[Rfam]
RNA sequence: AGCCAUGCAAUGAACACAAAGCGAACUAUUCUUUCGCCUUUUACUAAAGAAUACCGUGUGUUCGUUGUAUAAAGUGGCAUAUGCUUAUUUUUGAAGAGAUGUUCAUUUUCAUGAAUGUU
Dot-bracket structure: ..((((.(((((((((((........((((((((...........))))))))...)))))))))))......)))).................(...((((((........)))))))
Numbered sequence: 001a002g003c004c005a006u007g008c009a010a011u012g013a014a015c016a017c018a019a020a021g022c023g024a025a026c027u028a029u030u031c032u033u034u035c036g037c038c039u040u041u042u043a044c045u046a047a048a049g050a051a052u053a054c055c056g057u058g059u060g061u062u063c064g065u066u067g068u069a070u071a072a073a074g075u076g077g078c079a080u081a082u083g084c085u086u087a088u089u090u091u092u093g094a095a096g097a098g099a100u101g102u103u104c105a106u107u108u109u110c111a112u113g114a115a116u117g118u119u
Stems, first nucleotide, its partner, number of pairs: 003077004008067011027053008095119001099118006
U5 spliceosomal RNA: a 119-nucleotide RNA from Cynara cardunculus. A search with the family's covariance model found it, with a score of 91 bits. Taxonomically the source falls in Cynara cardunculus subsp. cardunculus (Eukaryota, Mesangiospermae, campanulids, Cynara cardunculus). The literature on the family includes a 1997 paper in Nucleic Acids Res by Zwieb, "The uRNA database". U5 RNA is a component of both types of known spliceosome.